[Rfam]
This 70-nucleotide RNA sequence from Tombusvirus lycopersici belongs to the Rfam family "Tombus virus defective interfering (DI) RNA region 3".

RNA sequence: AGCGAGUAAGACAGACUCUUCAGUCUGAGUUUGCGGAAACGAGUGUAAAGCGGGCAUAGCAUACAGGUUA
Numbered sequence: 001a002g003c004g005a006g007u008a009a010g011a012c013a014g015a016c017u018c019u020u021c022a023g024u025c026u027g028a029g030u031u032u033g034c035g036g037a038a039a040c041g042a043g044u045g046u047a048a049a050g051c052g053g054g055c056a057u058a059g060c061a062u063a064c065a066g067g068u069u070a
Stems, first nucleotide, its partner, number of pairs: 012033007048069002051066001053064001

A reference for the family is Ray and White (2003), "An internally located RNA hairpin enhances replication of Tomato bushy stunt virus RNAs", J Virol. The source organism's lineage runs through Viruses, Tolivirales, Tombusviridae, Tombusvirus and Tomato bushy stunt virus. Rfam links the family to the GO term viral genome replication. By type it is a cis-regulatory element.